[Rfam]
The record is a 136-nucleotide RNA, which matches "Plastid-psbA-1 3UTR RNA" in Rfam. On this family, see Richter et al., Plant Commun 2023: "Retrograde signaling in plants: A critical review focusing on the GUN pathway and beyond". It is annotated as a cis-regulatory element. From the family's description: Plastid psbA-1 is a non-coding RNA (ncRNA) present in plastids. Its Rfam clan is "Plastid-psbA 3UTR RNA clan".
RNA sequence: GUAGAAGUUCCAUCUAUAAAUGGAUAAGACCCCGGUUUUAAUUAUUUAAUUAUAUAAUAAGGUUUUGAAAAAUAAAAAAGAAAGGAGCAAUAGUCGACUUCUUGUUUUAUCAAGGGGACGUUAUUGCUCCUUUCUU
Number, nucleotide and partner (000 for none) at each position: 001g000002u000003a000004g000005a000006a000007g000008u000009u024010c023011c022012a021013u020014c000015u000016a000017u000018a000019a000020a013021u012022g011023g010024a009025u000026a000027a000028g000029a000030c000031c000032c000033c000034g000035g000036u000037u000038u000039u000040a000041a000042u000043u000044a000045u000046u000047u000048a000049a000050u000051u000052a000053u000054a000055u000056a000057a000058u000059a000060a000061g000062g000063u000064u000065u000066u000067g000068a000069a000070a000071a000072a000073u000074a000075a000076a000077a000078a000079a000080g000081a133082a132083a131084g130085g129086a128087g127088c126089a125090a124091u123092a122093g121094u000095c000096g000097a000098c000099u116100u115101c114102u113103u112104g000105u000106u000107u000108u000109a000110u000111c000112a103113a102114g101115g100116g099117g000118a000119c000120g000121u093122u092123a091124u090125u089126g088127c087128u086129c085130c084131u083132u082133u081134c000135u000136u000